[Rfam]
RNA: Glycine riboswitch aptamer
Organism: Weizmannia acidilactici
RNA sequence: AUGAGAAUAAGGGGAGAGACUGCAUAUGCAGCGCCGACGGAGCAAGCAAUGUUUGCGAAUCUCUCAGGCAAAAAGACUCUUAAUUUGAC
Numbered sequence: 001a002u003g004a005g006a007a008u009a010a011g012g013g014g015a016g017a018g019a020c021u022g023c024a025u026a027u028g029c030a031g032c033g034c035c036g037a038c039g040g041a042g043c044a045a046g047c048a049a050u051g052u053u054u055g056c057g058a059a060u061c062u063c064u065c066a067g068g069c070a071a072a073a074a075g076a077c078u079c080u081u082a083a084u085u086u087g088a089c
Stems, first nucleotide, its partner, number of pairs: 006084001008082006020031004033069003036065002040063003046056002